c-di-AMP riboswitch aptamer (ydaO/yuaA leader): a 171-nucleotide RNA sequence from Streptomyces sp. CdTB01. NCBI's taxonomy places the organism under Bacteria, Actinomycetota, Actinomycetes, Streptomycetaceae, Streptomyces. This family represents a conserved RNA structure found upstream of the ydaO and yuaA genes in Bacillus subtilis and related genes in other bacteria.
RNA sequence: CGCUUCACAGCGCCGUAGGCAGGAGCGGGGGACCCAAGGUAAGUGCCCCACCGGGUGGUUGACGGUGGUGGCUCGGGGUGUAGCCGCGGCUCGCGAGAGCGAGUCCGCGGCCGGGCAACUCAACCGGCCCGAACCCGACAGCUCACCUCGCAGGCGUCGGUGAGGGGAUCC
Numbered sequence: 001c002g003c004u005u006c007a008c009a010g011c012g013c014c015g016u017a018g019g020c021a022g023g024a025g026c027g028g029g030g031g032a033c034c035c036a037a038g039g040u041a042a043g044u045g046c047c048c049c050a051c052c053g054g055g056u057g058g059u060u061g062a063c064g065g066u067g068g069u070g071g072c073u074c075g076g077g078g079u080g081u082a083g084c085c086g087c088g089g090c091u092c093g094c095g096a097g098a099g100c101g102a103g104u105c106c107g108c109g110g111c112c113g114g115g116c117a118a119c120u121c122a123a124c125c126g127g128c129c130c131g132a133a134c135c136c137g138a139c140a141g142c143u144c145a146c147c148u149c150g151c152a153g154g155c156g157u158c159g160g161u162g163a164g165g166g167g168a169u170c171c
Base pairs, nucleotide, nucleotide: 001153005024006023025151026150027149028148029147030146035075076136077135078134084110085109086108087107088106089105113130114129115128116127